The record is a 138-nucleotide RNA from Microcebus murinus, which matches "Small nucleolar RNA SNORA47" in Rfam. It is annotated as an H/ACA-box small nucleolar RNA. The literature on the family includes a 2001 paper in EMBO J by Huttenhofer et al., "RNomics: an experimental approach that identifies 201 candidates for novel, small, non-messenger RNAs in mouse".
RNA sequence: UGGAGGACUGAGAAGGUGAGGCAGUUCUGUACUGUGCUGCCUUCCACUGGUUAAGACCUCCAAAAGUGAAGAGCUGCCCAGGCAGAGGAUGCCCCUCUGCCACCCUCAGAGGGGCAACGCUGUGCUGGCCGACAUUUC
Number, nucleotide and partner (000 for none) at each position: 001u000002g061003g060004a059005g058006g057007a000008c000009u000010g000011a000012g000013a000014a000015g048016g047017u046018g045019a042020g041021g040022c039023a038024g037025u036026u000027c000028u000029g000030u000031a000032c000033u000034g000035u000036g025037c024038u023039g022040c021041c020042u019043u000044c000045c018046a017047c016048u015049g000050g000051u000052u000053a000054a000055g000056a000057c006058c005059u004060c003061c002062a000063a000064a000065a000066g000067u000068g000069a000070a000071g000072a000073g000074c000075u000076g000077c000078c000079c000080a000081g130082g129083c128084a000085g000086a126087g125088g000089a123090u122091g121092c000093c000094c000095c000096u000097c000098u116099g115100c114101c113102a000103c112104c111105c000106u000107c000108a000109g000110a000111g104112g103113g101114g100115c099116a098117a000118c000119g000120c000121u091122g090123u089124g000125c087126u086127g000128g083129c082130c081131g000132a000133c000134a000135u000136u000137u000138c000